[Rfam]
RNA sequence: UAGUAGAUGCACCCCGAUAAAAUCCUUGGUUCAACACCAGGGAUUUUUUUU
Numbered sequence: 001u002a003g004u005a006g007a008u009g010c011a012c013c014c015c016g017a018u019a020a021a022a023u024c025c026u027u028g029g030u031u032c033a034a035c036a037c038c039a040g041g042g043a044u045u046u047u048u049u050u051u
Base pairs, nucleotide, nucleotide: 003012004011023043024042025041026040027039028038029037030036